RNA sequence: CGAAUCCGUGCGGGAGAGUUCCGGGCCGUGCCGGCCCGGGCGCCGAAGGAGCAAGUUCCUCCCUUGAAUCUCUCAGGCCCCGCACCGCACGUGAUGA
Numbered sequence: 001c002g003a004a005u006c007c008g009u010g011c012g013g014g015a016g017a018g019u020u021c022c023g024g025g026c027c028g029u030g031c032c033g034g035c036c037c038g039g040g041c042g043c044c045g046a047a048g049g050a051g052c053a054a055g056u057u058c059c060u061c062c063c064u065u066g067a068a069u070c071u072c073u074c075a076g077g078c079c080c081c082g083c084a085c086c087g088c089a090c091g092u093g094a095u096g097a
Stems, first nucleotide, its partner, number of pairs: 007091007020040007042078003045074002049072003055065001
Rfam assigns this 97-nucleotide RNA from Streptomyces rubrolavendulae to the family "Glycine riboswitch aptamer".